[Rfam]
RNA sequence: GUUCCCAGUGAUGAUUGACUUGACCAUGCUAAUGCUGAUCAAUUUGUGAUUAUUCUUUUCUAUAAUUUUUCUGAGGGAACU
Numbered sequence: 001g002u003u004c005c006c007a008g009u010g011a012u013g014a015u016u017g018a019c020u021u022g023a024c025c026a027u028g029c030u031a032a033u034g035c036u037g038a039u040c041a042a043u044u045u046g047u048g049a050u051u052a053u054u055c056u057u058u059u060c061u062a063u064a065a066u067u068u069u070u071c072u073g074a075g076g077g078a079a080c081u
Base pairs, nucleotide, nucleotide: 001080002079003078004077005076
Record summary: A member of the RNA family "Small nucleolar RNA snoR53Y" from Cucumis sativus, 81 nucleotides long. Rfam links the family to the GO terms RNA processing and nucleolus. Its Rfam clan is "snoR53 clan". The family's consensus secondary structure was predicted with WAR. Rfam 15.1 lists 513 matches to the family in 230 species.